[Rfam]
RNA sequence: GUACCUUCGGAAUUAAUUAAACAUCUCUUAAUUAAAAAUAGUAUACCCCAUAAUAUACAUGCGAAGGUGAAAUUUUGACUCCCUUUAGUAUUGGACCUAUGCGAGCAGCGUAUAGGUCCUUUAU
Numbered sequence: 001g002u003a004c005c006u007u008c009g010g011a012a013u014u015a016a017u018u019a020a021a022c023a024u025c026u027c028u029u030a031a032u033u034a035a036a037a038a039u040a041g042u043a044u045a046c047c048c049c050a051u052a053a054u055a056u057a058c059a060u061g062c063g064a065a066g067g068u069g070a071a072a073u074u075u076u077g078a079c080u081c082c083c084u085u086u087a088g089u090a091u092u093g094g095a096c097c098u099a100u101g102c103g104a105g106c107a108g109c110g111u112a113u114a115g116g117u118c119c120u121u122u123a124u
Stems, first nucleotide, its partner, number of pairs: 002069008021042002023039002026035001043051002082094002085090001095117009

Overview: Shown here is a 124-nucleotide sequence from Staphylococcus simulans, a member of the family "RNA Staph. aureus H". The organism belongs to Staphylococcus, within Bacteria.